[Rfam]
Rfam assigns this 70-nucleotide RNA from Dissostichus mawsoni to the family "Small nucleolar RNA SNORD30". Its family is annotated with nucleolus and RNA processing in the Gene Ontology. Pairs were carried over by alignment from the consensus structure. By type it is a C/D-box small nucleolar RNA. NCBI's taxonomy places the organism under Eukaryota, Chordata, Teleostomi, Clupeocephala, Dissostichus. For this family Rfam cites "A mammalian gene with introns instead of exons generating stable RNA products" (Tycowski et al., Nature, 1996). Its Rfam clan is "SNORD30 clan".
RNA sequence: GAAAAUGAUGAGAUAUUUUAUGGAAUCUCGUUCGUCUGAACUUCUGUUGAGAAAUCUAUAUCUGACAUCA
Numbered sequence: 001g002a003a004a005a006u007g008a009u010g011a012g013a014u015a016u017u018u019u020a021u022g023g024a025a026u027c028u029c030g031u032u033c034g035u036c037u038g039a040a041c042u043u044c045u046g047u048u049g050a051g052a053a054a055u056c057u058a059u060a061u062c063u064g065a066c067a068u069c070a
Base pairs, nucleotide, nucleotide: 026052027051028050029049030048033046034045